[Rfam]
RNA sequence: UAAUUAAAUAGAAAAAGAGGAUAUGCGCUAACAUAUCCCCUUUGUAGAACCGUUUAAGACGGUAGCGCUAAUUUAAUUAUCUAAAA
Numbered sequence: 001u002a003a004u005u006a007a008a009u010a011g012a013a014a015a016a017g018a019g020g021a022u023a024u025g026c027g028c029u030a031a032c033a034u035a036u037c038c039c040c041u042u043u044g045u046a047g048a049a050c051c052g053u054u055u056a057a058g059a060c061g062g063u064a065g066c067g068c069u070a071a072u073u074u075a076a077u078u079a080u081c082u083a084a085a086a
Base pairs, nucleotide, nucleotide: 022035023034024033025032049063050062051061052060053059054058
RNA: RNA anti-toxin A